[Rfam]
RNA sequence: GCCUUGUGGUUACUGGAGCCUGAAGCCCGUUCAGUGCUGCAGUUAGAGAAGAGGCCCAUAUUAAUACUGUGAUUAUGCAUGGCUGCUGAUUGUCCAUUUAGCCGCCAUAGCCCGGUUGCAGUGACAGAC
Dot-bracket structure: ((((..(..(.((((.(..((((.......))))...).)))).)..)...))))...........(.((((((..((((((..(((((........)))))..)))).))..)))))).)........

Shown here is a 129-nucleotide sequence from Eleutherodactylus coqui, a member of the family "Small nucleolar RNA SNORA84". A search with the family's covariance model found it, with a score of 72 bits. Lineage of the source: Eukaryota > Deuterostomia > Vertebrata > Sarcopterygii > Eleutherodactylus. Pairs were carried over by alignment from the consensus structure, which was predicted with WAR.